[Rfam]
The family of this 133-nucleotide RNA sequence from Vibrio genomosp. F6 is "Histidine operon leader". It is annotated as a cis-regulatory leader. A search with the family's covariance model found it, with a score of 91 bits. On this family, see Kolter and Yanofsky, Annu Rev Genet 1982: "Attenuation in amino acid biosynthetic operons". The base pairs follow the family's consensus structure, which is taken from published work. NCBI's taxonomy places the organism under Bacteria, Pseudomonadati, Pseudomonadota, Vibrionaceae, Vibrio genomosp. F6. Its family is annotated with histidine biosynthetic process in the Gene Ontology.
RNA sequence: UCAUCACCAUCAUCACCCAGUUUAGUCUUUCGGGAGAUACGCGCAUACCCGGGAGGCAGGAAAACUCCCGGAGGUUAAGUCAAAGUAUUUAGAUUUAAACCCUCGGGAGAGAAACUUCCGAGGGUUUUUUUAU
Numbered sequence: 001u002c003a004u005c006a007c008c009a010u011c012a013u014c015a016c017c018c019a020g021u022u023u024a025g026u027c028u029u030u031c032g033g034g035a036g037a038u039a040c041g042c043g044c045a046u047a048c049c050c051g052g053g054a055g056g057c058a059g060g061a062a063a064a065c066u067c068c069c070g071g072a073g074g075u076u077a078a079g080u081c082a083a084a085g086u087a088u089u090u091a092g093a094u095u096u097a098a099a100c101c102c103u104c105g106g107g108a109g110a111g112a113a114a115c116u117u118c119c120g121a122g123g124g125u126u127u128u129u130u131u132a133u
Base pairs, nucleotide, nucleotide: 009046010045012038013037014036017034018033020031048071049070051069052068053067054066055065097127098126099125100124101123102122103121104120105119106118107117108116109115